[Rfam]
RNA sequence: UACGUGCUCCGGGGUCGGUGAAAGUCCGAACCGGCGGUGAUAGUCCGCGAGCCGCAGCCCACUCCGGUGGGAGGCGGUUGACCUGGUGGAAUUCCAGGGCCGACGGUAAAAGUCCGGAAGGGAGGCAGCACGAG
Numbered sequence: 001u002a003c004g005u006g007c008u009c010c011g012g013g014g015u016c017g018g019u020g021a022a023a024g025u026c027c028g029a030a031c032c033g034g035c036g037g038u039g040a041u042a043g044u045c046c047g048c049g050a051g052c053c054g055c056a057g058c059c060c061a062c063u064c065c066g067g068u069g070g071g072a073g074g075c076g077g078u079u080g081a082c083c084u085g086g087u088g089g090a091a092u093u094c095c096a097g098g099g100c101c102g103a104c105g106g107u108a109a110a111a112g113u114c115c116g117g118a119a120g121g122g123a124g125g126c127a128g129c130a131c132g133a134g
Stems, first nucleotide, its partner, number of pairs: 003132006009125002016028003030113002032102002034048004043100002051078005082098005104116003
The record is a 134-nucleotide RNA from Rathayibacter toxicus, which matches "FMN riboswitch aptamer (RFN element)" in Rfam. Rfam's curators write: The RFN element is a highly conserved domain that is found frequently in the 5'-untranslated regions of prokaryotic mRNAs that encode for flavin mononucleotide (FMN) biosynthesis and transport proteins. Rfam links the family to the GO term FMN binding.